Overview: The record is a 116-nucleotide sequence from Gongylonema pulchrum, which matches "Potassium channel RNA editing signal" in Rfam. NCBI's taxonomy places the organism under Eukaryota, Bilateria, Protostomia, Ecdysozoa, Gongylonema. It is annotated as a cis-regulatory element. It scores 57 bits against the family's covariance model. Pairs were carried over by alignment from the consensus structure, which is taken from published work.
RNA sequence: CUGGGCUACGGCGACAUGGUACCAGCAACAAUAAUGGGCAAAGUUGUUGGCGGAGUUUGUUCAUUAAGCGGUGUUCUGGUGAUCGCGCUUCCAGUUCCGGUAAGUUCGCAUCCAGC
Numbered sequence: 001c002u003g004g005g006c007u008a009c010g011g012c013g014a015c016a017u018g019g020u021a022c023c024a025g026c027a028a029c030a031a032u033a034a035u036g037g038g039c040a041a042a043g044u045u046g047u048u049g050g051c052g053g054a055g056u057u058u059g060u061u062c063a064u065u066a067a068g069c070g071g072u073g074u075u076c077u078g079g080u081g082a083u084c085g086c087g088c089u090u091c092c093a094g095u096u097c098c099g100g101u102a103a104g105u106u107c108g109c110a111u112c113c114a115g116c
Stems, first nucleotide, its partner, number of pairs: 002115001004113002007110001009108003014101002018097002021095002037077002040074001050062001